[Rfam]
RNA sequence: UUUGUGGGAUACACACGGUUCAGUUGUGUCACUUUUGCGAGCAUCACUGGGCUUUGUUUAUCUCAUAAG
Numbered sequence: 001u002u003u004g005u006g007g008g009a010u011a012c013a014c015a016c017g018g019u020u021c022a023g024u025u026g027u028g029u030c031a032c033u034u035u036u037g038c039g040a041g042c043a044u045c046a047c048u049g050g051g052c053u054u055u056g057u058u059u060a061u062c063u064c065a066u067a068a069g
Stems, first nucleotide, its partner, number of pairs: 002068010013057002017053008027043003
Shown here is a 69-nucleotide RNA sequence from Drosophila ananassae, a member of the family "mir-318 microRNA precursor family". Taxonomically the source falls in ananassae species complex (Eukaryota, Opisthokonta, Pancrustacea, Pterygota). It is one of the family's seed sequences.